[Rfam]
RNA sequence: UGCGAAUUAAUGUAAUAGUAACAUAUAUGGCUCAUGCCCAUAAAAUUUAGGUGCAACCCCUAAGUUCGCAA
Dot-bracket structure: (((((((..((((.......)))).(((((.......)))))....(((((.......)))))))))))).
Numbered sequence: 001u002g003c004g005a006a007u008u009a010a011u012g013u014a015a016u017a018g019u020a021a022c023a024u025a026u027a028u029g030g031c032u033c034a035u036g037c038c039c040a041u042a043a044a045a046u047u048u049a050g051g052u053g054c055a056a057c058c059c060c061u062a063a064g065u066u067c068g069c070a071a
Stems, first nucleotide, its partner, number of pairs: 001070007010024004026042005047063005
Record summary
tRNA: a 71-nucleotide RNA sequence from Penicillium arizonense. By type it is a transfer RNA. The family's consensus secondary structure is taken from published work. The match comes from Rfam's covariance-model search (51 bits).